Record summary:
Small nucleolar RNA snR57: a 100-nucleotide sequence from Zygotorulaspora mrakii. Taxonomically the source falls in Zygotorulaspora (Eukaryota, saccharomyceta, Saccharomycotina, Saccharomycetales). It scores 74 bits against the family's covariance model. For this family Rfam cites "A computational screen for methylation guide snoRNAs in yeast" (Lowe and Eddy, Science, 1999).
RNA sequence: AAAACUCUUAAUGGUAAUUUUUAAUUGCCGUUAUACUUUCACUGAGGAUGUAUAUGCAGGACAUAUUGUUAAUUAGGAAUUCUUCGUUUAUGAUCUUUUU
Numbered sequence: 001a002a003a004a005c006u007c008u009u010a011a012u013g014g015u016a017a018u019u020u021u022u023a024a025u026u027g028c029c030g031u032u033a034u035a036c037u038u039u040c041a042c043u044g045a046g047g048a049u050g051u052a053u054a055u056g057c058a059g060g061a062c063a064u065a066u067u068g069u070u071a072a073u074u075a076g077g078a079a080u081u082c083u084u085c086g087u088u089u090a091u092g093a094u095c096u097u098u099u100u
Stems, first nucleotide, its partner, number of pairs: 001100004